This 97-nucleotide RNA sequence from Solilutibacter pythonis belongs to the Rfam family "Glycine riboswitch aptamer". Its Rfam clan is "Glycine riboswitch clan". Lineage of the source: Bacteria > Pseudomonadota > Gammaproteobacteria > Lysobacteraceae > Solilutibacter.

RNA sequence: CAUCGAGACUCUGGAGAGACCGGCCCCGCGCCGGCGCCGAAGGGGCAAGACGGCAGCCGCCGUUCAAACUCUCAGGCAAAAGGACAGAGGGGCGUUC
Numbered sequence: 001c002a003u004c005g006a007g008a009c010u011c012u013g014g015a016g017a018g019a020c021c022g023g024c025c026c027c028g029c030g031c032c033g034g035c036g037c038c039g040a041a042g043g044g045g046c047a048a049g050a051c052g053g054c055a056g057c058c059g060c061c062g063u064u065c066a067a068a069c070u071c072u073c074a075g076g077c078a079a080a081a082g083g084a085c086a087g088a089g090g091g092g093c094g095u096u097c
Base pairs, nucleotide, nucleotide: 009089010088011087012086013085020034021033022032023031036077037076038075039073040072043071044070045069049064050063051062052061